[Rfam]
RNA: Pestivirus 3' UTR SLI
Organism: Orthopestivirus tauri
RNA sequence: AGCUGUGUGAGGUUAACUCGACGUCCAUGGUUGGACUAGAGGAUGGCUCUAACGGUCCCC
Numbered sequence: 001a002g003c004u005g006u007g008u009g010a011g012g013u014u015a016a017c018u019c020g021a022c023g024u025c026c027a028u029g030g031u032u033g034g035a036c037u038a039g040a041g042g043a044u045g046g047c048u049c050u051a052a053c054g055g056u057c058c059c060c
Base pairs, nucleotide, nucleotide: 002056003055004054005053006052008051009050011049012048014046017041018040019039023036024035025034026033027032